[Rfam]
RNA sequence: UGUAUUCGAUUGUAUUCGACUGUAUACACGACGUGAAAUAGGGGAUUGCACUGUUUUUCAACGGAAAGUGAAUCAAUUAACAUAAUAGACUCCU
Number, nucleotide and partner (000 for none) at each position: 001u000002g091003u000004a000005u000006u000007c088008g000009a086010u085011u084012g083013u082014a000015u080016u079017c000018g078019a077020c000021u075022g074023u000024a073025u072026a000027c070028a069029c068030g000031a000032c063033g062034u061035g057036a056037a055038a054039u053040a052041g051042g000043g000044g000045a000046u000047u000048g000049c000050a000051c041052u040053g039054u038055u037056u036057u035058u000059c000060a000061a034062c033063g032064g000065a000066a000067a000068g029069u028070g027071a000072a025073u024074c022075a021076a000077u019078u018079a016080a015081c000082a013083u012084a011085a010086u009087a000088g007089a000090c000091u002092c000093c000094u000
A member of the RNA family "MIR6152 microRNA precursor family" from Nicotiana sylvestris, 94 nucleotides long. A search with the family's covariance model found it, with a score of 78 bits. Taxonomically the source falls in Nicotiana (Eukaryota, Tracheophyta, Mesangiospermae, Pentapetalae).